[Rfam]
RNA sequence: UAUACAAAAUAAAAUGUAACUUAUAUAUUUUUCGAAUAAGGCGAAUUGUUUCUACAGGCAACCAUAAAUUGCUAACUAUAAGUGAGAUAAAUAGAAUU
Numbered sequence: 001u002a003u004a005c006a007a008a009a010u011a012a013a014a015u016g017u018a019a020c021u022u023a024u025a026u027a028u029u030u031u032u033c034g035a036a037u038a039a040g041g042c043g044a045a046u047u048g049u050u051u052c053u054a055c056a057g058g059c060a061a062c063c064a065u066a067a068a069u070u071g072c073u074a075a076c077u078a079u080a081a082g083u084g085a086g087a088u089a090a091a092u093a094g095a096a097u098u
Stems, first nucleotide, its partner, number of pairs: 019083007031045004057073005
Rfam assigns this 98-nucleotide sequence from Leptotrichia sp. oral taxon 215 to the family "Purine riboswitch aptamer". The base pairs follow the family's consensus structure, which is taken from published work. It scores 60 bits against the family's covariance model. Riboswitches are metabolite binding domains within certain messenger RNAs that serve as precision sensors for their corresponding targets. Allosteric rearrangement of mRNA structure is mediated by ligand binding, and this results in modulation of gene expression.